[Rfam]
RNA sequence: GUUUUCUGUUUUGUGUACAGACUGAAAACUCAGAGAGCAUGUGUUGUCAUCAACUUUAUCCCUUUUUUAUCGUUAGAGAAGAGUUAAAUAACAACAUUGGAUUG
Numbered sequence: 001g002u003u004u005u006c007u008g009u010u011u012u013g014u015g016u017a018c019a020g021a022c023u024g025a026a027a028a029c030u031c032a033g034a035g036a037g038c039a040u041g042u043g044u045u046g047u048c049a050u051c052a053a054c055u056u057u058a059u060c061c062c063u064u065u066u067u068u069a070u071c072g073u074u075a076g077a078g079a080a081g082a083g084u085u086a087a088a089u090a091a092c093a094a095c096a097u098u099g100g101a102u103u104g
Stems, first nucleotide, its partner, number of pairs: 041097006052085006059077002